[Rfam]
RNA: TPP riboswitch aptamer (THI element)
RNA sequence: GCGCCAUCCCCGGGGAGCCUGCUGAGGCUGAGAGGUGGGCGUAAGCACCCCACGACCCGUCGAACCUGAACCUGUUAACACAGGCGGAGGGAGUGGUCCGGUCGCACGC
Numbered sequence: 001g002c003g004c005c006a007u008c009c010c011c012g013g014g015g016a017g018c019c020u021g022c023u024g025a026g027g028c029u030g031a032g033a034g035g036u037g038g039g040c041g042u043a044a045g046c047a048c049c050c051c052a053c054g055a056c057c058c059g060u061c062g063a064a065c066c067u068g069a070a071c072c073u074g075u076u077a078a079c080a081c082a083g084g085c086g087g088a089g090g091g092a093g094u095g096g097u098c099c100g101g102u103c104g105c106a107c108g109c
Stems, first nucleotide, its partner, number of pairs: 006097003010093001011059004017028004035053005065090003071084004